[Rfam]
A member of the RNA family "T-box leader" from bacterium HR28, 235 nucleotides long.
The match comes from Rfam's covariance-model search (106 bits).
RNA sequence: GCAAGGGCGAAGACGGAAACGAGUACGUCGCGAGUCACCCUCAGCGAGUCCGGGACGGUGUGAGCCGGAUGGGAUUCUCGCGACGGAAGAUCCUUCCCGAGCCGCUGCCCGAACCGGAGUGACACCAGAGUAGGCGCAGACGGGAGUCGCCCGUUACAGCGACCGAAAGUGGGCACGGGACGCCAACGUCCCGUGCCAACUGGGGUGGUACCGCGGGUGAACCCCCGUCCUCAGG
Numbered sequence: 001g002c003a004a005g006g007g008c009g010a011a012g013a014c015g016g017a018a019a020c021g022a023g024u025a026c027g028u029c030g031c032g033a034g035u036c037a038c039c040c041u042c043a044g045c046g047a048g049u050c051c052g053g054g055a056c057g058g059u060g061u062g063a064g065c066c067g068g069a070u071g072g073g074a075u076u077c078u079c080g081c082g083a084c085g086g087a088a089g090a091u092c093c094u095u096c097c098c099g100a101g102c103c104g105c106u107g108c109c110c111g112a113a114c115c116g117g118a119g120u121g122a123c124a125c126c127a128g129a130g131u132a133g134g135c136g137c138a139g140a141c142g143g144g145a146g147u148c149g150c151c152c153g154u155u156a157c158a159g160c161g162a163c164c165g166a167a168a169g170u171g172g173g174c175a176c177g178g179g180a181c182g183c184c185a186a187c188g189u190c191c192c193g194u195g196c197c198a199a200c201u202g203g204g205g206u207g208g209u210a211c212c213g214c215g216g217g218u219g220a221a222c223c224c225c226c227g228u229c230c231u232c233a234g235g
Stems, first nucleotide, its partner, number of pairs: 007102002015097004026085006038072002048070006105139004109134002141153003172197010202232004213228005
Dot-bracket structure: ......((......((((.......((((((......((........((((((...........)))))))).......))))))........))))...))..((((((......................)).)))).(((.......)))..................((((((((((......))))))))))....((((.......(((((......)))))))))...

The family has 48 seed sequences and 19,395 matches in Rfam 15.1. Uncharged tRNA acts as the effector for transcription antitermination of genes in the T-box leader family. T-boxes are found upstream of many aminoacyl-tRNA synthetase genes and some amino acid biosynthetic genes usually in Gram-positive bacteria.